[Rfam]
RNA: gntR-DTE RNA
RNA sequence: CGGGUGAAGUCGUCGGCGGCACAGCCGAACGCACCAGCUCCGGAGAACGCCCCCACCUGGGGCGCCGCCUGGUGUGAGCCGCCCUGCUGGCGUCAGAGCAGUGACGAUGACGCACCCG
Numbered sequence: 001c002g003g004g005u006g007a008a009g010u011c012g013u014c015g016g017c018g019g020c021a022c023a024g025c026c027g028a029a030c031g032c033a034c035c036a037g038c039u040c041c042g043g044a045g046a047a048c049g050c051c052c053c054c055a056c057c058u059g060g061g062g063c064g065c066c067g068c069c070u071g072g073u074g075u076g077a078g079c080c081g082c083c084c085u086g087c088u089g090g091c092g093u094c095a096g097a098g099c100a101g102u103g104a105c106g107a108u109g110a111c112g113c114a115c116c117c118g
Base pairs, nucleotide, nucleotide: 015083016082017081018080019079020078030076031075032074033073034072035071036070037069041067042066043065048064049063050062051061052060
Dot-bracket structure: ..............((((((.........((((((((...(((....(((((.......)))))))).)))))))).))))))...................................